RNA sequence: GAACUAAGGCGAAUGGUCGCUGCUGCCAAGUGCAGGAGAGGAAAGUCCGGGCUUCAUAGAGCAGGAUGCCUGAUAACGUCAGGUUGAGGUGACUCACAGGAAAGUGCAACAGAAAAGAACCGCCGGUUUCCGGUAAGGGUGAAAAGGGGGUGUAAGAGACCACCGGUUUCCUGGUAACAGGAAAUGCUAUGUAAACCCCAUCCGAAGCAAGGUUAAACAGAGGGCAUAAGGUGGCUCGCCUGCCCUCGGGUAAACCGCUUGAGGCUUAUGGCGACAUAAGUCCUAGAUAGAUGACCAUUUUUAACAUAACCCGGCUUAUAGCCAUAGUUCCCCC
Number, nucleotide and partner (000 for none) at each position: 001g330002a329003a328004c327005u326006a325007a000008g323009g322010c321011g319012a299013a298014u297015g296016g295017u294018c293019g000020c038021u037022g000023c035024u034025g033026c032027c000028a000029a000030g000031u000032g026033c025034a024035g023036g000037a021038g020039a000040g000041g000042a000043a317044a316045g315046u000047c314048c313049g312050g311051g310052c207053u206054u205055c204056a000057u000058a000059g237060a236061g235062c234063a000064g203065g202066a201067u200068g199069c083070c082071u081072g080073a079074u000075a000076a000077c000078g000079u073080c072081a071082g070083g069084u098085u096086g095087a094088g093089g000090u000091g000092a000093c088094u087095c086096a085097c000098a084099g198100g197101a000102a000103a000104g196105u195106g192107c191108a190109a000110c000111a000112g000113a000114a000115a000116a000117g000118a000119a000120c138121c137122g134123c133124c132125g131126g130127u000128u000129u000130c126131c125132g124133g123134u122135a000136a000137g121138g120139g000140u000141g000142a000143a000144a000145a000146g164147g163148g000149g161150g160151u159152g000153u000154a000155a000156g000157a000158g000159a151160c150161c149162a000163c147164c146165g187166g185167u184168u183169u182170c181171c180172u179173g178174g000175u000176a000177a000178c173179a172180g171181g170182a169183a168184a167185u166186g000187c165188u000189a000190u108191g107192u106193a000194a000195a105196c104197c100198c099199c068200a067201u066202c065203c064204g055205a054206a053207g052208c000209a000210a000211g256212g255213u254214u253215a000216a000217a000218c000219a000220g247221a246222g245223g244224g243225c242226a000227u000228a000229a241230g240231g239232u238233g000234g062235c061236u060237c059238g232239c231240c230241u229242g225243c224244c223245c222246u221247c220248g000249g000250g000251u000252a000253a214254a213255c212256c211257g000258c000259u000260u000261g000262a000263g282264g281265c280266u279267u278268a277269u276270g275271g000272c000273g000274a000275c270276a269277u268278a267279a266280g265281u264282c263283c000284u000285a000286g000287a000288u000289a000290g000291a000292u000293g018294a017295c016296c015297a014298u013299u012300u000301u000302u000303a000304a000305c000306a000307u000308a000309a000310c051311c050312c049313g048314g047315c045316u044317u043318a000319u011320a000321g010322c009323c008324a000325u006326a005327g004328u003329u002330c001331c000332c000333c000334c000
This 334-nucleotide RNA sequence from Oribacterium sinus belongs to the Rfam family "Bacterial RNase P class A". Its family is annotated with ribonuclease P activity, tRNA processing and dimeric ribonuclease P complex in the Gene Ontology. The match comes from Rfam's covariance-model search (310 bits).